[Rfam]
A member of the RNA family "chrB-a RNA" from Sulfitobacter sediminilitoris, 79 nucleotides long. Pairs were carried over by alignment from the consensus structure, which is taken from published work. The family has 163 seed sequences and 347 matches in Rfam 15.1.
RNA sequence: GUCAUGGGGAGUACCGCGAACGCCCCGUGAGGCCCCGGCCGGAGGUUCGCAUGUUUCCAAGCAAAGGAUGCAUGCCAUG
Number, nucleotide and partner (000 for none) at each position: 001g000002u000003c000004a000005u027006g026007g025008g024009g023010a000011g000012u000013a000014c000015c000016g000017c000018g000019a000020a000021c000022g000023c009024c008025c007026c006027g005028u000029g000030a000031g000032g000033c000034c000035c000036c000037g000038g000039c000040c000041g000042g000043a000044g000045g000046u000047u000048c000049g075050c074051a073052u072053g071054u070055u000056u000057c000058c000059a000060a000061g000062c000063a000064a000065a000066g000067g000068a000069u000070g054071c053072a052073u051074g050075c049076c000077a000078u000079g000